[Rfam]
RNA sequence: AGGUCACAACUCUGAGGCCAUAGCAGAAGCGCUCAUAGUGUGUCCAUAUCAGAUUCCAAUGCAUCUGCAAAUUCUACC
Number, nucleotide and partner (000 for none) at each position: 001a000002g000003g000004u000005c000006a000007c000008a000009a000010c000011u000012c000013u046014g045015a000016g000017g044018c000019c042020a000021u000022a000023g077024c000025a075026g074027a073028a072029g041030c040031g039032c000033u000034c000035a000036u000037a000038g000039u031040g030041u029042g019043u000044c017045c014046a013047u000048a000049u000050c067051a066052g065053a064054u063055u000056c061057c000058a000059a000060u000061g056062c000063a054064u053065c052066u051067g050068c000069a000070a000071a000072u028073u027074c026075u025076a000077c023078c000
A member of the RNA family "Mammalian CPEB3 ribozyme" from Crocodylus porosus, 78 nucleotides long. The source organism's lineage runs through Eukaryota, Bilateria, Dipnotetrapodomorpha, Crocodylidae and Crocodylus. It scores 36 bits against the family's covariance model. The base pairs follow the family's consensus structure, which is taken from published work.